[Rfam]
Description
The family of this 127-nucleotide RNA sequence from Pipistrellus kuhlii is "Small nucleolar RNA U109". The match comes from Rfam's covariance-model search (88 bits). The literature on the family includes a 2003 paper in EMBO J by Richard et al., "A common sequence motif determines the Cajal body-specific localization of box H/ACA scaRNAs".
RNA sequence: UUGCAGGUGGAAAUAUGUCUGCUUCUCUUUCCUUUGGGAAUAGGAAUACAUGACAUGCUACAUUAAAAAAGGGAUUCUCAGGGCUGCCAACUUUAUAGUAGAGCAGUAAUAUAAUUCUCCUACAUAA
Number, nucleotide and partner (000 for none) at each position: 001u000002u000003g058004c057005a056006g000007g054008u053009g000010g000011a000012a000013a000014u000015a000016u000017g000018u044019c043020u042021g041022c000023u039024u038025c037026u000027c000028u000029u000030u000031c000032c000033u000034u000035u000036g000037g025038g024039a023040a000041u021042a020043g019044g018045a000046a000047u000048a000049c000050a000051u000052g000053a008054c007055a000056u005057g004058c003059u000060a000061c000062a000063u000064u000065a000066a000067a000068a000069a000070a000071g120072g119073g118074a000075u000076u000077c000078u000079c000080a000081g000082g000083g107084c106085u000086g000087c103088c101089a000090a099091c098092u000093u000094u000095a000096u000097a000098g091099u090100a000101g088102a000103g087104c000105a000106g084107u083108a000109a000110u000111a000112u000113a000114a000115u000116u000117c000118u073119c072120c071121u000122a000123c000124a000125u000126a000127a000